[Rfam]
RNA sequence: CCUAUCGUGAGGUAGGAUCUGAAGGAAGCUGAAAGCAAAAUGCUGGCCUGACGAACAGGAAGCGGUUUAGGCGUUGUAGCAGGGUAAGGUGGCCAUUAUCACUAAAGCCCAAUACUUGCAUGGAAUGCUGCAACGUAAAGCCGACAGGCAUAAGCAGGAAGGUCGCGCGA
Numbered sequence: 001c002c003u004a005u006c007g008u009g010a011g012g013u014a015g016g017a018u019c020u021g022a023a024g025g026a027a028g029c030u031g032a033a034a035g036c037a038a039a040a041u042g043c044u045g046g047c048c049u050g051a052c053g054a055a056c057a058g059g060a061a062g063c064g065g066u067u068u069a070g071g072c073g074u075u076g077u078a079g080c081a082g083g084g085u086a087a088g089g090u091g092g093c094c095a096u097u098a099u100c101a102c103u104a105a106a107g108c109c110c111a112a113u114a115c116u117u118g119c120a121u122g123g124a125a126u127g128c129u130g131c132a133a134c135g136u137a138a139a140g141c142c143g144a145c146a147g148g149c150a151u152a153a154g155c156a157g158g159a160a161g162g163u164c165g166c167g168c169g170a
Stems, first nucleotide, its partner, number of pairs: 001016006029169001035163002041156004046149005063143004071136003075132007082110004088103004
Shown here is a 170-nucleotide RNA, a member of the family "Group II catalytic intron D1-D4-3". On this family, see Bonen and Vogel, Trends Genet 2001: "The ins and outs of group II introns". It is one of the family's seed sequences. Pairs were carried over by alignment from the consensus structure.